[Rfam]
Small nucleolar RNA SNORD70: an 88-nucleotide RNA from Eleutherodactylus coqui. snoRNA HBII-234 belongs to the C/D family of snoRNAs. It is the human orthologue of the mouse MBII-234 and is predicted to guide 2'O-ribose methylation of the small 18S rRNA on position A512. It is hosted, together with HBII-95, by the core C/D box snoRNA protein encoding gene NOP5/NOP58. Lineage of the source: Eukaryota > Sarcopterygii > Dipnotetrapodomorpha > Eleutherodactylidae > Eleutherodactylus. Rfam classes the family as a C/D-box small nucleolar RNA. The family has 21 seed sequences and 1,085 matches in Rfam 15.1. It scores 56 bits against the family's covariance model.
Nucleotides: 088
Stems, first nucleotide, its partner, number of pairs: 001088002006083007
Number, partner (000 for none) and nucleotide at each position: 001088c002087c003000u004000u005000u006083u007082g008081u009080u010079g011078c012077c013000g014000a015000u016000g017000a018000u019000u020000g021000a022000g023000u024000u025000u026000a027000g028000u029000u030000g031000a032000g033000c034000u035000g036000a037000a038000u039000a040000u041000c042000u043000a044000u045000g046000a047000u048000u049000u050000c051000a052000u053000u054000c055000a056000a057000c058000g059000c060000u061000u062000c063000g064000u065000c066000a067000c068000u069000a070000c071000c072000a073000c074000u075000g076000a077012g078011g079010u080009a081008a082007c083006a084000u085000c086000c087002g088001g